[Rfam]
RNA sequence: CCGGAUGUCCGGUCGACAUCAGUGGAUCGGCAGGAGUGGAGGACCCAGGCACAGCGGGCCGCCCUGAGCAGUUCAGGACCGGCCCUUGGGGUGAAGCCGCAUACAGCGGCCGGGCAUCUUCGCCAGCCCGAACCCGACAGGUCACCCUUCACAGGCGGUUGACGAAGGGUUA
Number, nucleotide and partner (000 for none) at each position: 001c155002c154003g000004g000005a000006u035007g000008u033009c000010c000011g000012g000013u000014c000015g000016a000017c000018a000019u000020c000021a000022g000023u000024g000025g000026a000027u000028c000029g000030g000031c000032a000033g008034g000035a006036g152037u151038g150039g149040a148041g147042g000043a000044c000045c000046c088047a087048g086049g085050c000051a000052c000053a000054g000055c000056g000057g000058g000059c000060c000061g000062c000063c000064c000065u000066g000067a000068g000069c000070a000071g000072u000073u000074c000075a000076g000077g000078a000079c000080c000081g000082g000083c000084c000085c049086u048087u047088g046089g135090g134091g133092u000093g000094a000095a000096g000097c109098c108099g107100c106101a000102u000103a000104c000105a000106g100107c099108g098109g097110c000111c000112g129113g128114g127115c126116a000117u000118c000119u000120u000121c000122g000123c000124c000125a000126g115127c114128c113129c112130g000131a000132a000133c091134c090135c089136g000137a000138c000139a000140g000141g000142u000143c000144a000145c000146c000147c041148u040149u039150c038151a037152c036153a000154g002155g001156c000157g000158g000159u000160u000161g000162a000163c000164g000165a000166a000167g000168g000169g000170u000171u000172a000
Record summary
This 172-nucleotide RNA from Streptomyces tsukubensis belongs to the Rfam family "c-di-AMP riboswitch aptamer (ydaO/yuaA leader)". This family represents a conserved RNA structure found upstream of the ydaO and yuaA genes in Bacillus subtilis and related genes in other bacteria.